RNA sequence: AAGCAACACUCUGUGGCAGAUUAUCAAAAUAGUCUGGCACAAUUUGAGCUUGCUACAGCAAGAAAGUCUAACCUAUUCCGGAACUCUCCCCUCUAUGAGAUGGCCCGUUAUAUAGACUUAAACAGU
Numbered sequence: 001a002a003g004c005a006a007c008a009c010u011c012u013g014u015g016g017c018a019g020a021u022u023a024u025c026a027a028a029a030u031a032g033u034c035u036g037g038c039a040c041a042a043u044u045u046g047a048g049c050u051u052g053c054u055a056c057a058g059c060a061a062g063a064a065a066g067u068c069u070a071a072c073c074u075a076u077u078c079c080g081g082a083a084c085u086c087u088c089c090c091c092u093c094u095a096u097g098a099g100a101u102g103g104c105c106c107g108u109u110a111u112a113u114a115g116a117c118u119u120a121a122a123c124a125g126u
Base pairs, nucleotide, nucleotide: 009048010047011046012041013040014039015038017036018035019034020033021032022031064119065118066117067116068115069114070113074112075111076110079107080106081105087100088099090097

Background
Small nucleolar RNA SNORA28: a 126-nucleotide sequence from Chinchilla lanigera. The base pairs follow the family's consensus structure, which was predicted with RNAfold. From the family's description: ACA28 is a member of the H/ACA class of snoRNA that guide the sites of modification of uridines to pseudouridines. The family's RNA type in Rfam is H/ACA-box small nucleolar RNA. Clan: SNORA28 clan.